This 361-nucleotide RNA from Arachidicoccus ginsenosidimutans belongs to the Rfam family "Bacterial RNase P class A". Gene Ontology terms of the family: tRNA processing, ribonuclease P activity and dimeric ribonuclease P complex. The organism belongs to Arachidicoccus, within Bacteria.
[Rfam]
RNA sequence: CUACAAGCCCGAUCCAUCGCGGCGUUCGCGUCGAGGAAAGUCCGGACAGCACAGAGCAGUUUACCGGCGAACAACCGGGUUUCAAAAAUCAUUUUUUGAAAACAGACAGCGCCACAGAAAAUAACCGCUGAAUUUUUUCAGUAAGGAUGAAAACGUGCGGUAAGAGCGCACGGCAAAGUGCAGCAAUGCACUUUGCGGGCAAGCCUUAAACGCUGCAAUGCCACGUAUAGUUGUGUUUGAGAACGGCUCGUUCAAAACUUCGGUUACACAACAGGGUAGGCAGCUACACCGCAACAGUAAUGUUGCGGGCAGAUAAAUGAUGGUUUAGAAACAGAAUCCGGCUUAUGAGGCUUGUAGCAUU
Numbered sequence: 001c002u003a004c005a006a007g008c009c010c011g012a013u014c015c016a017u018c019g020c021g022g023c024g025u026u027c028g029c030g031u032c033g034a035g036g037a038a039a040g041u042c043c044g045g046a047c048a049g050c051a052c053a054g055a056g057c058a059g060u061u062u063a064c065c066g067g068c069g070a071a072c073a074a075c076c077g078g079g080u081u082u083c084a085a086a087a088a089u090c091a092u093u094u095u096u097u098g099a100a101a102a103c104a105g106a107c108a109g110c111g112c113c114a115c116a117g118a119a120a121a122u123a124a125c126c127g128c129u130g131a132a133u134u135u136u137u138u139c140a141g142u143a144a145g146g147a148u149g150a151a152a153a154c155g156u157g158c159g160g161u162a163a164g165a166g167c168g169c170a171c172g173g174c175a176a177a178g179u180g181c182a183g184c185a186a187u188g189c190a191c192u193u194u195g196c197g198g199g200c201a202a203g204c205c206u207u208a209a210a211c212g213c214u215g216c217a218a219u220g221c222c223a224c225g226u227a228u229a230g231u232u233g234u235g236u237u238u239g240a241g242a243a244c245g246g247c248u249c250g251u252u253c254a255a256a257a258c259u260u261c262g263g264u265u266a267c268a269c270a271a272c273a274g275g276g277u278a279g280g281c282a283g284c285u286a287c288a289c290c291g292c293a294a295c296a297g298u299a300a301u302g303u304u305g306c307g308g309g310c311a312g313a314u315a316a317a318u319g320a321u322g323g324u325u326u327a328g329a330a331a332c333a334g335a336a337u338c339c340g341g342c343u344u345a346u347g348a349g350g351c352u353u354g355u356a357g358c359a360u361u
Base pairs, nucleotide, nucleotide: 001357002356003355004354005353006352007351008350009349011346012325014323015322016321017320018319020033021032022031023030024029038344039343040342042341043340044339045338046337047215048214049213050212054261055260059211060210061209062208063207064078065077066076067075079103080101081100082099083098084097085096086095087094088093104206105205109204110203111200112199113198125146126145127142128141129140130139131138132137154172155171156170157169158168159167175194176193177192178191179190180189181188182187219282220281221280222279230272231271232270233269234268256265257264258263289308290307291306292305293304294303295302296301